[Rfam]
RNA: Group II catalytic intron D1-D4-1
RNA sequence: UACUUACCCGGGGAGGUCUGGCGGAUAUGUGAACCGUCAGAAGUCAGCAGAGGUCAUAGUAUUAGUUGGUCUAGAACAACUAAGAAGGAC
Numbered sequence: 001u002a003c004u005u006a007c008c009c010g011g012g013g014a015g016g017u018c019u020g021g022c023g024g025a026u027a028u029g030u031g032a033a034c035c036g037u038c039a040g041a042a043g044u045c046a047g048c049a050g051a052g053g054u055c056a057u058a059g060u061a062u063u064a065g066u067u068g069g070u071c072u073a074g075a076a077c078a079a080c081u082a083a084g085a086a087g088g089a090c
Stems, first nucleotide, its partner, number of pairs: 003029001005027002008024003044051002053090003062083006